[Rfam]
RNA sequence: UAUCUGCAAAGGCAUACCUCGCGAAAGCGAGGGACGCAAAGUCAUCGGUCUACCGGGCACUAGCCCCAGGACGGCAGGACUGCCAGA
Numbered sequence: 001u002a003u004c005u006g007c008a009a010a011g012g013c014a015u016a017c018c019u020c021g022c023g024a025a026a027g028c029g030a031g032g033g034a035c036g037c038a039a040a041g042u043c044a045u046c047g048g049u050c051u052a053c054c055g056g057g058c059a060c061u062a063g064c065c066c067c068a069g070g071a072c073g074g075c076a077g078g079a080c081u082g083c084c085a086g087a
Base pairs, nucleotide, nucleotide: 012037013036017032018031019030020029021028022027040081041080042079043078045077047075048072049071050070055066056065057064058063